[Rfam]
RNA sequence: CCCAUCAUGGGCUCAGUAGCCAGUGUAGAUCCUGUCUUUUGUAAUCAGUAGCUACAUCUGGCUACUGGGUCUCAAAAAAAAAAA
Numbered sequence: 001c002c003c004a005u006c007a008u009g010g011g012c013u014c015a016g017u018a019g020c021c022a023g024u025g026u027a028g029a030u031c032c033u034g035u036c037u038u039u040u041g042u043a044a045u046c047a048g049u050a051g052c053u054a055c056a057u058c059u060g061g062c063u064a065c066u067g068g069g070u071c072u073c074a075a076a077a078a079a080a081a082a083a084a
Stems, first nucleotide, its partner, number of pairs: 013068006020061003023057006032051004
RNA: mir-221 microRNA precursor family
Organism: Aotus nancymaae